[Rfam]
RNA sequence: UGGUGCCCAACGUGGGGCUCGAUACUGGGGGCAUCUUGUGAGGGAGACGACGGAAAAAGGAAGGAGUGUACUCGUUCAAUUUUGAGUAGUUCAGAAACGCGCCGCGGGAGCCUGCCGUGACCGAAUCGAAGGUAAGUUGUGCUGUCCGAUCAUGGGACAAGAAUUGAGCCAGCAAUUGAGAGAGGCUGUAAAGACAUGAGGAGUAAAGGUUAGAACUACAGAUUUAUUUCAUUUCUUUGAUUUUGUAAAGGACAUUUGUCCCU
Numbered sequence: 001u002g003g004u005g006c007c008c009a010a011c012g013u014g015g016g017g018c019u020c021g022a023u024a025c026u027g028g029g030g031g032c033a034u035c036u037u038g039u040g041a042g043g044g045a046g047a048c049g050a051c052g053g054a055a056a057a058a059g060g061a062a063g064g065a066g067u068g069u070a071c072u073c074g075u076u077c078a079a080u081u082u083u084g085a086g087u088a089g090u091u092c093a094g095a096a097a098c099g100c101g102c103c104g105c106g107g108g109a110g111c112c113u114g115c116c117g118u119g120a121c122c123g124a125a126u127c128g129a130a131g132g133u134a135a136g137u138u139g140u141g142c143u144g145u146c147c148g149a150u151c152a153u154g155g156g157a158c159a160a161g162a163a164u165u166g167a168g169c170c171a172g173c174a175a176u177u178g179a180g181a182g183a184g185g186c187u188g189u190a191a192a193g194a195c196a197u198g199a200g201g202a203g204u205a206a207a208g209g210u211u212a213g214a215a216c217u218a219c220a221g222a223u224u225u226a227u228u229u230c231a232u233u234u235c236u237u238u239g240a241u242u243u244u245g246u247a248a249a250g251g252a253c254a255u256u257u258g259u260c261c262c263u
Base pairs, nucleotide, nucleotide: 006031007030008029012025013024014023036050037049038048039047088133090131091129092128098123099122103119104118105117106116107115140159141158145156146155147154148153165190166189168186169185170184197239198238199237200236201235202234203233207225208224209223210222211221248263250261251260252259253258
RNA: Mason-Pfizer monkey virus packaging signal